A member of the RNA family "mir-5350 microRNA precursor family" from Ascaris suum, 74 nucleotides long. The family's consensus secondary structure was predicted with RNAalifold. NCBI's taxonomy places the organism under Eukaryota, Bilateria, Nematoda, Spirurina, Ascaris.
RNA sequence: CUGGAGGUGGCGUUUCUGAGGUCCGCCAAAUUGCUUUACGACAAACUUGGCACACCUGAGAAACGCCUGCUCCA
Numbered sequence: 001c002u003g004g005a006g007g008u009g010g011c012g013u014u015u016c017u018g019a020g021g022u023c024c025g026c027c028a029a030a031u032u033g034c035u036u037u038a039c040g041a042c043a044a045a046c047u048u049g050g051c052a053c054a055c056c057u058g059a060g061a062a063a064c065g066c067c068u069g070c071u072c073c074a
Base pairs, nucleotide, nucleotide: 003073004072005071006070009067010066011065012064013063014062015061016060017059019057020056021055022054025051026050027049028048029047031045032044